RNA: Connexin-43 internal ribosome entry site (IRES)
RNA sequence: AACUUCUACCUGGUGUGAGCAAUUUUCUUUCAUUAGGGAGAAGGAGCGAGGAAGGUACCAAACAGCAGCAGACUUUUGAACUUGAGACAGUUUAGGCUGCUUCAACUUAACUUUUUUCAUUUUACUUAGUCCCUCAAUGAGUACAAUCAUUUGGCAUGCCUACUUCACUUUUUUUAAGUGAACUAACAGCGAACAGGCAAC
Numbered sequence: 001a002a003c004u005u006c007u008a009c010c011u012g013g014u015g016u017g018a019g020c021a022a023u024u025u026u027c028u029u030u031c032a033u034u035a036g037g038g039a040g041a042a043g044g045a046g047c048g049a050g051g052a053a054g055g056u057a058c059c060a061a062a063c064a065g066c067a068g069c070a071g072a073c074u075u076u077u078g079a080a081c082u083u084g085a086g087a088c089a090g091u092u093u094a095g096g097c098u099g100c101u102u103c104a105a106c107u108u109a110a111c112u113u114u115u116u117u118c119a120u121u122u123u124a125c126u127u128a129g130u131c132c133c134u135c136a137a138u139g140a141g142u143a144c145a146a147u148c149a150u151u152u153g154g155c156a157u158g159c160c161u162a163c164u165u166c167a168c169u170u171u172u173u174u175u176a177a178g179u180g181a182a183c184u185a186a187c188a189g190c191g192a193a194c195a196g197g198c199a200a201c
Base pairs, nucleotide, nucleotide: 003019004018007015008014009013029141030140031139033137034136036134037133038132041127042126043125048121049120051118053115054114055113070098071097073095074094099106150197151196152195153194157191158190159189165182166180167179168178169177170176